RNA sequence: UUGGUUCCGGUUCACGUCCCAGCACCAAGCAGGCGACCCGGGGCU
Numbered sequence: 001u002u003g004g005u006u007c008c009g010g011u012u013c014a015c016g017u018c019c020c021a022g023c024a025c026c027a028a029g030c031a032g033g034c035g036a037c038c039c040g041g042g043g044c045u
Base pairs, nucleotide, nucleotide: 003045004044005043007041008040009039010038015035016034017033018032022030023029
Dot-bracket structure: ..(((.((((....((((...((.....)).))))..)))).)))

The record is a 45-nucleotide RNA sequence from Kribbella amoyensis, which matches "L31-Actinobacteria ribosomal protein leader" in Rfam. Rfam classes the family as a cis-regulatory leader.